Shown here is a 137-nucleotide sequence from Microthlaspi erraticum, a member of the family "Small nucleolar RNA snoR77". By type it is an H/ACA-box small nucleolar RNA.

RNA sequence: AGGCAGCCUCCUUGUUAAAAAAAUAAAAAUGACAUGUCAGAGGUGUUUAACUGCUCCUACAAUGAACUAUGCUUCUGCUCUUCAGACGUGCUGAGACAUUAUGUCUUUGAAGCUGGUCUAGUAGUCUUAAGCACAUU
Numbered sequence: 001a002g003g004c005a006g007c008c009u010c011c012u013u014g015u016u017a018a019a020a021a022a023a024u025a026a027a028a029a030u031g032a033c034a035u036g037u038c039a040g041a042g043g044u045g046u047u048u049a050a051c052u053g054c055u056c057c058u059a060c061a062a063u064g065a066a067c068u069a070u071g072c073u074u075c076u077g078c079u080c081u082u083c084a085g086a087c088g089u090g091c092u093g094a095g096a097c098a099u100u101a102u103g104u105c106u107u108u109g110a111a112g113c114u115g116g117u118c119u120a121g122u123a124g125u126c127u128u129a130a131g132c133a134c135a136u137u
Base pairs, nucleotide, nucleotide: 002047003046004045005044007043008042009040011036013034014033015032016031017030072131073130074129077126079124084119085118086117087116090113091112092111095105096104097103